Iron response element I: a 36-nucleotide RNA from Phascolarctos cinereus. It is annotated as a cis-regulatory element. Rfam links the family to the GO term response to iron ion. Pairs were carried over by alignment from the consensus structure, which is taken from published work.
Nucleotides: 036
Base pairs, nucleotide, nucleotide: 001036002035003034005032006031007030008029010028012027013026015024016023017021
Number, partner (000 for none) and nucleotide at each position: 001036c002035g003034g004000u005032u006031u007030c008029c009000u010028g011000c012027u013026u014000c015024a016023a017021c018000a019000g020000u021017g022000u023016u024015u025000a026013a027012a028010c029008g030007g031006a032005g033000c034003c035002u036001g